[Rfam]
RNA sequence: CUCACUAUGUGUAAAUAACACACACGUAUCGUCACAUGCGCCGGGGUGCCUGCAGGAUAAUGCAAAUGCAACGUCUGAAGGGUCGGCCGUAUGGGAUACGUGGAGGCUUAAC
Dot-bracket structure: ......................((((((((....(((((((((....((((............................)))))))).))))).))))))))..........